[Rfam]
RNA sequence: UAUACUUAAGGGCAAAUCCAUUCGAAAGAAGGAGACGCAAAGCCACGGGUCUAAAGCGAUUGCAGGUCGCAAUGACAGCCGGGCUGCACGU
Number, nucleotide and partner (000 for none) at each position: 001u000002a000003u000004a000005c000006u000007u000008a000009a000010g000011g000012g038013c037014a000015a000016a000017u033018c032019c031020a000021u030022u029023c028024g000025a000026a000027a000028g023029a022030a021031g019032g018033a017034g000035a000036c000037g013038c012039a000040a000041a085042g084043c083044c082045a000046c081047g080048g079049g076050u075051c074052u000053a000054a000055a000056g070057c069058g068059a067060u000061u000062g000063c000064a000065g000066g000067u059068c058069g057070c056071a000072a000073u000074g051075a050076c049077a000078g000079c048080c047081g046082g044083g043084c042085u041086g000087c000088a000089c000090g000091u000
The family of this 91-nucleotide sequence from Xylanibacillus composti is "c-di-GMP-I riboswitch aptamer".
A search with the family's covariance model found it, with a score of 74 bits.
Rfam describes the family as follows. GEMM was predicted in a large-scale screen for bacterial structured RNA regulatory elements.